The record is a 68-nucleotide RNA from Molossus molossus, which matches "Small nucleolar RNA SNORD42" in Rfam.
Rfam's curators write: snoRNA U42 is found in intron 3 of the ribosomal protein L23a (RPL23a) gene in humans and is also present in mice.
A reference for the family is Galardi et al. (2002), "Purified box C/D snoRNPs are able to reproduce site-specific 2'-O-methylation of target RNA in vitro", Mol Cell Biol.
The organism belongs to Molossus, within Eukaryota.
Its family is annotated with nucleolus and RNA processing in the Gene Ontology.
A search with the family's covariance model found it, with a score of 39 bits.
[Rfam]
RNA sequence: CUGCAGAUGUCAGGGAAAAAAGCACUAUUUGGAAAAGAAUGACAUGAACAAAGGAACCCCUGGUGCAU
Numbered sequence: 001c002u003g004c005a006g007a008u009g010u011c012a013g014g015g016a017a018a019a020a021a022g023c024a025c026u027a028u029u030u031g032g033a034a035a036a037g038a039a040u041g042a043c044a045u046g047a048a049c050a051a052a053g054g055a056a057c058c059c060c061u062g063g064u065g066c067a068u
Stems, first nucleotide, its partner, number of pairs: 002067004